[Rfam]
RNA sequence: AAGUGUUACAGCUCUUUUAGAAUUUGUCUAGCAGGUUUUCCGAGUCCUCACCGUAAGACCCAA
Dot-bracket structure: .................................((((((.((.(....).).).))))))...